[Rfam]
RNA sequence: CAGACUGUUGUCAAUAAUGAAACUUAGUGGAAUUGAAAUUAAAGAUUUAGUUCAGUUCCUUCAUCACUACCAUUGAGACAACAGAUGG
Numbered sequence: 001c002a003g004a005c006u007g008u009u010g011u012c013a014a015u016a017a018u019g020a021a022a023c024u025u026a027g028u029g030g031a032a033u034u035g036a037a038a039u040u041a042a043a044g045a046u047u048u049a050g051u052u053c054a055g056u057u058c059c060u061u062c063a064u065c066a067c068u069a070c071c072a073u074u075g076a077g078a079c080a081a082c083a084g085a086u087g088g
Stems, first nucleotide, its partner, number of pairs: 001088001003086001005084008
RNA: Small nucleolar RNA SNORD70